[Rfam]
RNA sequence: GGAUGUGAGGGAGAUCUGGCUGCAACAUCUGUCACCCCACUGAUUGCCAGGGUUGAUUCAGCUGAUUCGGCUGGCUAGGUGGAUGUCCCCUUCCUCCCUCACUGCUCCGUGUGCGUCCCUCCCGAAGCUGCGUGCUUGGUCGACAGUAUGACCUUCCCCGACAGAGGAGAGGACCGUUCUUCGGUCAAGGGUAUGUGAGUUGCUGCGCUCCCCCGCUGGAACCUCCAAACAAGCUCUCAAGGUCCACUUGUAGGAGAACAUAGGGUAGUCAAGCUUCCAAGACUCCAGACACAUCCAAAAGAGGCGCUGCAUGUGGCAGUCUGCCUUUCUUU
Numbered sequence: 001g002g003a004u005g006u007g008a009g010g011g012a013g014a015u016c017u018g019g020c021u022g023c024a025a026c027a028u029c030u031g032u033c034a035c036c037c038c039a040c041u042g043a044u045u046g047c048c049a050g051g052g053u054u055g056a057u058u059c060a061g062c063u064g065a066u067u068c069g070g071c072u073g074g075c076u077a078g079g080u081g082g083a084u085g086u087c088c089c090c091u092u093c094c095u096c097c098c099u100c101a102c103u104g105c106u107c108c109g110u111g112u113g114c115g116u117c118c119c120u121c122c123c124g125a126a127g128c129u130g131c132g133u134g135c136u137u138g139g140u141c142g143a144c145a146g147u148a149u150g151a152c153c154u155u156c157c158c159c160g161a162c163a164g165a166g167g168a169g170a171g172g173a174c175c176g177u178u179c180u181u182c183g184g185u186c187a188a189g190g191g192u193a194u195g196u197g198a199g200u201u202g203c204u205g206c207g208c209u210c211c212c213c214c215g216c217u218g219g220a221a222c223c224u225c226c227a228a229a230c231a232a233g234c235u236c237u238c239a240a241g242g243u244c245c246a247c248u249u250g251u252a253g254g255a256g257a258a259c260a261u262a263g264g265g266u267a268g269u270c271a272a273g274c275u276u277c278c279a280a281g282a283c284u285c286c287a288g289a290c291a292c293a294u295c296c297a298a299a300a301g302a303g304g305c306g307c308u309g310c311a312u313g314u315g316g317c318a319g320u321c322u323g324c325c326u327u328u329c330u331u332u
Base pairs, nucleotide, nucleotide: 001108002107003106005102006101007100008099009098010097011096013093014092018090019089025086026085027084028083029082030081031080032079033078035074036073037070038069042067043066044065045064046062047061116172117171118167119166120165121164122139123138124137125136127135128134140161141160142159146157148155202274203273204272208268209267211265212264213263215261223256224255225254226253229251230250231249232248233247297332298331299330301327302326303325304324305323306320307319308318309317310316